U1 spliceosomal RNA: a 160-nucleotide RNA sequence from Solanum lycopersicum. Taxonomically the source falls in Solanum subgen. Lycopersicon (Eukaryota, asterids, Solanales, Solanoideae). The family is grouped with related families in Rfam's "U1 clan". From the family's description: U1 is a small nuclear RNA (snRNA) component of the spliceosome (involved in pre-mRNA splicing). The family's RNA type in Rfam is spliceosomal small nuclear RNA.

[Rfam]
RNA sequence: AUACUUACCUGGACGGGGUUUAUGGGCGAUCAUGUAGGUCCAUGGCCUAGGUUGGUGACUUCCAUUGCACUUUGGAGGGGUGCCCGCCUAAGAUCAGCCCAAGAAGUUGAGUCUACAUCAUAAUUUGUUGCUGAGGGGCAUGCGUUCGUGCGGCCCCUGC
Number, nucleotide and partner (000 for none) at each position: 001a000002u000003a000004c000005u000006u000007a000008c000009c000010u000011g000012g119013a118014c000015g116016g048017g047018g046019u045020u044021u000022a000023u042024g041025g040026g039027c038028g000029a000030u000031c000032a000033u000034g000035u000036a000037g000038g027039u026040c025041c024042a023043u000044g020045g019046c018047c017048u016049a089050g088051g087052u000053u086054g000055g083056u082057g081058a000059c079060u078061u077062c075063c074064a000065u000066u000067g000068c000069a000070c000071u000072u000073u000074g063075g062076a000077g061078g060079g059080g000081u057082g056083c055084c000085c000086g053087c051088c050089u049090a000091a114092g113093a112094u110095c109096a108097g000098c106099c000100c000101a000102a000103g000104a000105a000106g098107u000108u096109g095110a094111g000112u093113c092114u091115a000116c015117a000118u013119c012120a000121u000122a000123a000124u000125u000126u000127g000128u000129u000130g000131c000132u000133g000134a000135g158136g157137g156138g155139c000140a000141u152142g151143c150144g149145u000146u000147c000148g000149u144150g143151c142152g141153g000154c000155c138156c137157c136158u135159g000160c000